[Rfam]
RNA: TPP riboswitch aptamer (THI element)
RNA sequence: UGAAAUCACUAGGGGAGCCGCCCAGGCUGAGACGGAGCGUUACGCUUCGGACCCUUUGAACCUGAUCUGGAUCAUACCAGCGGAGGGAAGUGGAGCAGAACGUUU
Numbered sequence: 001u002g003a004a005a006u007c008a009c010u011a012g013g014g015g016a017g018c019c020g021c022c023c024a025g026g027c028u029g030a031g032a033c034g035g036a037g038c039g040u041u042a043c044g045c046u047u048c049g050g051a052c053c054c055u056u057u058g059a060a061c062c063u064g065a066u067c068u069g070g071a072u073c074a075u076a077c078c079a080g081c082g083g084a085g086g087g088a089a090g091u092g093g094a095g096c097a098g099a100a101c102g103u104u105u
Stems, first nucleotide, its partner, number of pairs: 006093005011055004017027003034048005061086003067080004